[Rfam]
RNA sequence: UUGGCUGUGUGUGACUGGCGGAGCAUGGGGAACCAUGAGGGAGCACGCAGAGACAUAUGCCGUACGCCUGGGCAAAGGUA
Numbered sequence: 001u002u003g004g005c006u007g008u009g010u011g012u013g014a015c016u017g018g019c020g021g022a023g024c025a026u027g028g029g030g031a032a033c034c035a036u037g038a039g040g041g042a043g044c045a046c047g048c049a050g051a052g053a054c055a056u057a058u059g060c061c062g063u064a065c066g067c068c069u070g071g072g073c074a075a076a077g078g079u080a
Base pairs, nucleotide, nucleotide: 005050006049007048008047009046010045011044012043015040016039017068018067019066020065025036026035027034028033058074059073060072061071
RNA: ZMP/ZTP riboswitch aptamer (pfl RNA motif)